[Rfam]
RNA sequence: UGUCUCCUCCACCCUCCUUUUGGUGGAUUUCUAUCCCAAGCUUAAUUGCUUGGGAUUUUUUUG
Numbered sequence: 001u002g003u004c005u006c007c008u009c010c011a012c013c014c015u016c017c018u019u020u021u022g023g024u025g026g027a028u029u030u031c032u033a034u035c036c037c038a039a040g041c042u043u044a045a046u047u048g049c050u051u052g053g054g055a056u057u058u059u060u061u062u063g
Base pairs, nucleotide, nucleotide: 008027009026010025011024012023013022033056034055035054036053037052038051039050040049
Dot-bracket structure: .......((((((........)))))).....((((((((........)))))))).......